[Rfam]
RNA: Bacteroidales-1 6S-Bacteroidales RNA suggested
Organism: Hoylesella saccharolytica
RNA sequence: GGUUGUAUCGAUUAGAUUGGGGUACUCUUCAAAACAAAAUCGAAAACCGAGAAGAUUUCUUUUGCUAAUGGCGGGCCACAAACCUUACGGUUAGCUGUAAAGCCGGUGGAUUACAAAGGCGGAGAACUCUCAAAUCAUGUAUAGCUCAGAGUUUUCAUCACAUCAUCGAUAUGACCCUCUUU
Numbered sequence: 001g002g003u004u005g006u007a008u009c010g011a012u013u014a015g016a017u018u019g020g021g022g023u024a025c026u027c028u029u030c031a032a033a034a035c036a037a038a039a040u041c042g043a044a045a046a047c048c049g050a051g052a053a054g055a056u057u058u059c060u061u062u063u064g065c066u067a068a069u070g071g072c073g074g075g076c077c078a079c080a081a082a083c084c085u086u087a088c089g090g091u092u093a094g095c096u097g098u099a100a101a102g103c104c105g106g107u108g109g110a111u112u113a114c115a116a117a118g119g120c121g122g123a124g125a126a127c128u129c130u131c132a133a134a135u136c137a138u139g140u141a142u143a144g145c146u147c148a149g150a151g152u153u154u155u156c157a158u159c160a161c162a163u164c165a166u167c168g169a170u171a172u173g174a175c176c177c178u179c180u181u182u
Stems, first nucleotide, its partner, number of pairs: 056126002059124001061123006069115002076109004082091003094103003